[Rfam]
The record is an 82-nucleotide sequence from Streptococcus pyogenes, which matches "Glycine riboswitch aptamer" in Rfam. The base pairs follow the family's consensus structure. NCBI's taxonomy places the organism under Bacteria, Bacillati, Streptococcaceae, Streptococcus pyogenes, Streptococcus pyogenes serotype M4.

RNA sequence: UGAUGUCAUGCAGGAGAAGAAUUUAUUUUCGCCGAAGGAGUUAUACUCUCAGGUGUUCAGUUUUUGAACGGGACUGUUUGAU
Number, nucleotide and partner (000 for none) at each position: 001u000002g000003a000004u000005g000006u081007c080008a079009u000010g077011c076012a075013g074014g000015a000016g000017a000018a029019g028020a027021a026022u000023u000024u000025a000026u021027u020028u019029u018030c000031g054032c053033c052034g050035a049036a000037g000038g048039a047040g046041u000042u000043a000044u000045a000046c040047u039048c038049u035050c034051a000052g033053g032054u031055g000056u000057u000058c000059a000060g000061u000062u000063u000064u000065u000066g000067a000068a000069c000070g000071g000072g000073a000074c013075u012076g011077u010078u000079u008080g007081a006082u000